This 81-nucleotide RNA sequence from Neogale vison belongs to the Rfam family "Small nucleolar RNA SNORD115". The literature on the family includes a 2000 paper in Proc Natl Acad Sci U S A by Cavaille et al., "Identification of brain-specific and imprinted small nucleolar RNA genes exhibiting an unusual genomic organization". The base pairs follow the family's consensus structure, which was predicted with PFOLD. A search with the family's covariance model found it, with a score of 66 bits.
RNA sequence: GGGUCAAUGAUUAGAACUCAUAUGGUCUGAAAAUGCGAUGAUGACCUAAAAAUCAUGCUCAAUAGGUGUACACUGAGGUGC
Numbered sequence: 001g002g003g004u005c006a007a008u009g010a011u012u013a014g015a016a017c018u019c020a021u022a023u024g025g026u027c028u029g030a031a032a033a034u035g036c037g038a039u040g041a042u043g044a045c046c047u048a049a050a051a052a053u054c055a056u057g058c059u060c061a062a063u064a065g066g067u068g069u070a071c072a073c074u075g076a077g078g079u080g081c
Base pairs, nucleotide, nucleotide: 001081003079004078005075006074008072009071
Rfam classes the family as a C/D-box small nucleolar RNA.